[Rfam]
RNA: mir-30 microRNA precursor family
Organism: Esox lucius
RNA sequence: CCCGUUAAUGUAAACAUCCUACACUCAGCUGUAAGUUAGCAGCGGUGGCUGGGAGAAGGCUGUUUGCUUUAACUGG
Numbered sequence: 001c002c003c004g005u006u007a008a009u010g011u012a013a014a015c016a017u018c019c020u021a022c023a024c025u026c027a028g029c030u031g032u033a034a035g036u037u038a039g040c041a042g043c044g045g046u047g048g049c050u051g052g053g054a055g056a057a058g059g060c061u062g063u064u065u066g067c068u069u070u071a072a073c074u075g076g
Base pairs, nucleotide, nucleotide: 002075004073005072006071008069010067011066012065013064014063015062016061018059019058020057022055024053025052026051027050028049029048030047